[Rfam]
RNA: Selenocysteine transfer RNA
Organism: bacterium HR24
RNA sequence: GGAGGGGUGCCGGAGCGGCUGAACGGGGCGGUCUCGAAAACCGCUAGGGGCCACCGUGCCCCUCGUGGGUUCGAAUCCCACCCCCUCC
Numbered sequence: 001g002g003a004g005g006g007g008u009g010c011c012g013g014a015g016c017g018g019c020u021g022a023a024c025g026g027g028g029c030g031g032u033c034u035c036g037a038a039a040a041c042c043g044c045u046a047g048g049g050g051c052c053a054c055c056g057u058g059c060c061c062c063u064c065g066u067g068g069g070u071u072c073g074a075a076u077c078c079c080a081c082c083c084c085c086u087c088c
Base pairs, nucleotide, nucleotide: 001088002087003086004085005084006083007082011026013024016021027045028044029043030042031041032040047062048061049060050059051058066080067079068078069077